[Rfam]
RNA sequence: GGCGGCGUAUUGCUCAGCCCGUUUCUGUUGUAUGCGCUGCUGGCGCUGCUGUGCACCGGGCUGUUGCGCCUGGGUUUGCAGCGCGUCGGAGUGGCGCAUUGGAUCUGGCACGAGGCGUUGUUCGACACUGCUUUG
Numbered sequence: 001g002g003c004g005g006c007g008u009a010u011u012g013c014u015c016a017g018c019c020c021g022u023u024u025c026u027g028u029u030g031u032a033u034g035c036g037c038u039g040c041u042g043g044c045g046c047u048g049c050u051g052u053g054c055a056c057c058g059g060g061c062u063g064u065u066g067c068g069c070c071u072g073g074g075u076u077u078g079c080a081g082c083g084c085g086u087c088g089g090a091g092u093g094g095c096g097c098a099u100u101g102g103a104u105c106u107g108g109c110a111c112g113a114g115g116c117g118u119u120g121u122u123c124g125a126c127a128c129u130g131c132u133u134u135g
Stems, first nucleotide, its partner, number of pairs: 002067006010059002012052002015048004019043003023039001068133001073095001075093001077091001079089001096131003101128001104125002108121003

Source information
The record is a 135-nucleotide RNA from Pseudomonas sp. GV071, which matches "Pseudomonas sRNA P18" in Rfam. The match comes from Rfam's covariance-model search (68 bits).